[Rfam]
RNA sequence: UAGUAUACAAAAUAAAAUAAUCGUAUAACCCCGAUAAUUUGGUUCGGGGGUUUCUACGGGAAACCUUAAUUUCUCAUUACAAAAUGAAUGCUAUACAGC
Numbered sequence: 001u002a003g004u005a006u007a008c009a010a011a012a013u014a015a016a017a018u019a020a021u022c023g024u025a026u027a028a029c030c031c032c033g034a035u036a037a038u039u040u041g042g043u044u045c046g047g048g049g050g051u052u053u054c055u056a057c058g059g060g061a062a063a064c065c066u067u068a069a070u071u072u073c074u075c076a077u078u079a080c081a082a083a084a085u086g087a088a089u090g091c092u093a094u095a096c097a098g099c
Stems, first nucleotide, its partner, number of pairs: 021082001023080003029049006058075006
Shown here is a 99-nucleotide sequence from Psychrilyobacter sp. S5, a member of the family "Purine riboswitch aptamer". Pairs were carried over by alignment from the consensus structure, which is taken from published work. The organism belongs to Psychrilyobacter, within Bacteria.